[Rfam]
This 46-nucleotide RNA from Salipaludibacillus keqinensis belongs to the Rfam family "PreQ1 (pre queuosine) riboswitch aptamer".
This family is a bacterial riboswitch that binds to the metabolite preQ1, an intermediate in the biosynthesis of the modified nucleoside queuosine from GTP. One example of this riboswitch is located in the leader of the Bacillus subtilis ykvJKLM (queCDEF) operon which encodes four genes necessary for queuosine production. PreQ1 binding to the riboswitch aptamer is thought to induce premature transcription termination within the leader to down-regulate expression of these genes.
The literature on the family includes a 2004 paper in J Biol Chem by Reader et al., "Identification of four genes necessary for biosynthesis of the modified nucleoside queuosine".
Lineage of the source: Bacteria > Bacillati > Bacillota > Caryophanales > Salipaludibacillus.
RNA sequence: UCGGGAGAGGUUCUAGCUAAUACCCUCUAUAAAAAACUAAGGAACU
Numbered sequence: 001u002c003g004g005g006a007g008a009g010g011u012u013c014u015a016g017c018u019a020a021u022a023c024c025c026u027c028u029a030u031a032a033a034a035a036a037c038u039a040a041g042g043a044a045c046u
Base pairs, nucleotide, nucleotide: 006028007027008026009025010024016038